L31-Actinobacteria ribosomal protein leader: a 45-nucleotide sequence from Kibdelosporangium phytohabitans.
The family's RNA type in Rfam is cis-regulatory leader.
It scores 52 bits against the family's covariance model.
The source organism's lineage runs through Bacteria, Actinomycetes, Pseudonocardiales, Pseudonocardiaceae and Kibdelosporangium.
Clan: Ribosomal Protein L31 Leader clan.
Pairs were carried over by alignment from the consensus structure, which is taken from published work.
The literature on the family includes a 2020 paper in BMC Microbiol by Eckert and Weinberg, "Discovery of 20 novel ribosomal leader candidates in bacteria and archaea".
RNA sequence: CCGGCUCCGGUUCACCCCGCGGAUCCACCAGGGGACCCGGCGGCC
Dot-bracket structure: ..(((.((((....((((..((.....)).))))..))))..)))